[Rfam]
RNA sequence: UAUCCAUCCCGAGCGGCUGAGAGACCUGGCUCGCUGAAGCCGCAGCAACCGCCCGCAGGGCCACGCCGGAUCGCGUGCUCCCCGUCACCACGGGCAGGUGCUACCGCCAGGUUCGAUGGAGG
Numbered sequence: 001u002a003u004c005c006a007u008c009c010c011g012a013g014c015g016g017c018u019g020a021g022a023g024a025c026c027u028g029g030c031u032c033g034c035u036g037a038a039g040c041c042g043c044a045g046c047a048a049c050c051g052c053c054c055g056c057a058g059g060g061c062c063a064c065g066c067c068g069g070a071u072c073g074c075g076u077g078c079u080c081c082c083c084g085u086c087a088c089c090a091c092g093g094g095c096a097g098g099u100g101c102u103a104c105c106g107c108c109a110g111g112u113u114c115g116a117u118g119g120a121g122g
Stems, first nucleotide, its partner, number of pairs: 001122001003120006013043005021032003026110004044102004049098002051095004106114001